[Rfam]
RNA sequence: AUCGGGGUCCGGGCCCCUCUGGCUGAAGCUCUCAGAGCUACAGCGAUGUCGGACCCUCUCA
Numbered sequence: 001a002u003c004g005g006g007g008u009c010c011g012g013g014c015c016c017c018u019c020u021g022g023c024u025g026a027a028g029c030u031c032u033c034a035g036a037g038c039u040a041c042a043g044c045g046a047u048g049u050c051g052g053a054c055c056c057u058c059u060c061a
Stems, first nucleotide, its partner, number of pairs: 006055007022044004027039003

terC RNA: a 61-nucleotide sequence from Tianweitania sediminis.
Lineage of the source: Bacteria > Pseudomonadati > Pseudomonadota > Alphaproteobacteria > Tianweitania.
The match comes from Rfam's covariance-model search (57 bits).
Pairs were carried over by alignment from the consensus structure, which is taken from published work.